A member of the RNA family "TPP riboswitch aptamer (THI element)" from Candidatus Ornithobacterium hominis, 95 nucleotides long.
Taxonomically the source falls in Ornithobacterium (Bacteria, Pseudomonadati, Bacteroidota, Flavobacteriia).
RNA sequence: GUAAAGCUUUAGGGGUGCUGACUUGUUCAGCUGAGAAAUACCCUUUGAACCUGAACAAGUUAGUACUUGCGGUAGGGAAAAGUAAUUGACUAUAA
Numbered sequence: 001g002u003a004a005a006g007c008u009u010u011a012g013g014g015g016u017g018c019u020g021a022c023u024u025g026u027u028c029a030g031c032u033g034a035g036a037a038a039u040a041c042c043c044u045u046u047g048a049a050c051c052u053g054a055a056c057a058a059g060u061u062a063g064u065a066c067u068u069g070c071g072g073u074a075g076g077g078a079a080a081a082g083u084a085a086u087u088g089a090c091u092a093u094a095a
Stems, first nucleotide, its partner, number of pairs: 006083005011044004016038001017031005050076004056069004

Background
The base pairs follow the family's consensus structure, which is taken from published work. The match comes from Rfam's covariance-model search (75 bits).